Overview
A member of the RNA family "glmS glucosamine-6-phosphate activated ribozyme aptamer" from Cohnella sp. AR92, 169 nucleotides long. A search with the family's covariance model found it, with a score of 77 bits. Rfam links the family to the GO terms regulation of gene expression and catalytic activity.
[Rfam]
RNA sequence: UAAGCACGAAAAGCGCCAGAACUUGUCGGCCGGCCGGAUGGCGGCGGCAAGUUGACGAGGUGGAGGUGUUCGGAACGUUCGGCGGGGACCUCCCGGCCCGCAUCGGGGCCGUAAGACGGAAGACAAAUCGCUCAGGGCAACCGGGCGGACAAUAUUCCGAAGAAGAUGA
Numbered sequence: 001u002a003a004g005c006a007c008g009a010a011a012a013g014c015g016c017c018a019g020a021a022c023u024u025g026u027c028g029g030c031c032g033g034c035c036g037g038a039u040g041g042c043g044g045c046g047g048c049a050a051g052u053u054g055a056c057g058a059g060g061u062g063g064a065g066g067u068g069u070u071c072g073g074a075a076c077g078u079u080c081g082g083c084g085g086g087g088a089c090c091u092c093c094c095g096g097c098c099c100g101c102a103u104c105g106g107g108g109c110c111g112u113a114a115g116a117c118g119g120a121a122g123a124c125a126a127a128u129c130g131c132u133c134a135g136g137g138c139a140a141c142c143g144g145g146c147g148g149a150c151a152a153u154a155u156u157c158c159g160a161a162g163a164a165g166a167u168g169a
Base pairs, nucleotide, nucleotide: 020053021052022051023050024049025048026047027046062093063092064091065090066089070082071081072080073079094111095110096109097108098107099106117159118158119157120156121155129147130146131145132144133143135142136141
Dot-bracket structure: ...................((((((((..................))))))))........(((((...((((.....))))......)))))((((((......)))))).....(((((.......(((((.((....))))))).......)))))..........